[Rfam]
RNA sequence: UUUCAAUGAUGACAAUCUAAGGCUUGUUUCUCAAAACAUUCGCGGUAGCCGACUAAGAUCUUUCGCCUACGCCAGGCUUAAGAGAUAGUGCUGCUUCAAUCCUUCCUUGGAUGUCUGAGAUA
Numbered sequence: 001u002u003u004c005a006a007u008g009a010u011g012a013c014a015a016u017c018u019a020a021g022g023c024u025u026g027u028u029u030c031u032c033a034a035a036a037c038a039u040u041c042g043c044g045g046u047a048g049c050c051g052a053c054u055a056a057g058a059u060c061u062u063u064c065g066c067c068u069a070c071g072c073c074a075g076g077c078u079u080a081a082g083a084g085a086u087a088g089u090g091c092u093g094c095u096u097c098a099a100u101c102c103u104u105c106c107u108u109g110g111a112u113g114u115c116u117g118a119g120a121u122a
Stems, first nucleotide, its partner, number of pairs: 001122001003120002059085005
The family of this 122-nucleotide RNA sequence from Camellia sinensis is "Small nucleolar RNA SNORD14".
Rfam's curators write: U14 small nucleolar RNA (U14 snoRNA) is required for early cleavages of eukaryotic precursor rRNAs. In yeasts, this molecule possess a stem-loop region (known as the Y-domain) which is essential for function. A similar structure, but with a different consensus sequence, is found in plants, but is absent in vertebrates.
The family's consensus secondary structure was predicted with PFOLD.
Taxonomically the source falls in Camellia (Eukaryota, Viridiplantae, Magnoliopsida, Gunneridae).
By type it is a C/D-box small nucleolar RNA.